The family of this 80-nucleotide RNA from Hermetia illucens is "drz-agam-1 ribozyme". Rfam 15.1 lists 10,507 matches to the family in 53 species.
RNA sequence: AAUUAAAAAACCCCUAUCUCCACCUCCACGUGGUGGCCGCUGGGAGCUUUUUCUUAACGAAAAGCUGCAGACGGAGAAGG
Numbered sequence: 001a002a003u004u005a006a007a008a009a010a011c012c013c014c015u016a017u018c019u020c021c022a023c024c025u026c027c028a029c030g031u032g033g034u035g036g037c038c039g040c041u042g043g044g045a046g047c048u049u050u051u052u053c054u055u056a057a058c059g060a061a062a063a064g065c066u067g068c069a070g071a072c073g074g075a076g077a078a079g080g
Stems, first nucleotide, its partner, number of pairs: 013080003017076001019074002022034003045066007053059001